[Rfam]
RNA sequence: UUUGUGAAAACCUUUUGAAUCAGAGUGAUUCAAAAGGUUCUCGACG
Numbered sequence: 001u002u003u004g005u006g007a008a009a010a011c012c013u014u015u016u017g018a019a020u021c022a023g024a025g026u027g028a029u030u031c032a033a034a035a036g037g038u039u040c041u042c043g044a045c046g
Base pairs, nucleotide, nucleotide: 005043006042007041009039010038011037012036013035014034015033016032017031018030019029020028021027022026
Plastid-ccsA-ndhD-2 3UTR RNA: a 46-nucleotide RNA sequence from Acer saccharum.
Plastid ccsA-ndhD-2 is a non-coding RNA (ncRNA) recognised in plastids. It was found in the three prime untranslated region (3UTR) of ccsA and ndhD genes, its 3UTR location suggests a role in transcript maturation.
The family has 421 seed sequences and 875 matches in Rfam 15.1.
The family's consensus secondary structure was predicted with LocARNA.